[Rfam]
RNA sequence: UUGCCUUAAACUAAUGAGUAAGGAAAAUAACGAUCUGGGUGACGCCAGAUCUUGUGGCUAGAGUCACUAUUAAUUUUUCUAGGGGUGACAGGCUGCCCUCAGGUGACCCGCUUACUUCUGCGGGAUGCCCGUGUUGUAGCGGCCUCCGCC
Number, nucleotide and partner (000 for none) at each position: 001u000002u000003g000004c023005c022006u021007u020008a019009a000010a000011c000012u000013a000014a000015u000016g000017a000018g000019u008020a007021a006022g005023g004024a000025a000026a000027a000028u000029a000030a000031c000032g051033a050034u049035c048036u047037g046038g045039g000040u000041g000042a000043c000044g000045c038046c037047a036048g035049a034050u033051c032052u000053u000054g067055u066056g065057g064058c000059u000060a000061g000062a000063g000064u057065c056066a055067c054068u000069a000070u000071u000072a000073a000074u000075u000076u000077u000078u000079c000080u000081a000082g000083g000084g150085g149086u148087g000088a000089c000090a145091g144092g143093c142094u141095g140096c139097c000098c000099u000100c000101a000102g129103g128104u127105g126106a000107c124108c123109c122110g121111c120112u000113u000114a000115c000116u000117u000118c000119u000120g111121c110122g109123g108124g107125a000126u105127g104128c103129c102130c000131g000132u000133g000134u000135u000136g000137u000138a000139g096140c095141g094142g093143c092144c091145u090146c000147c000148g086149c085150c084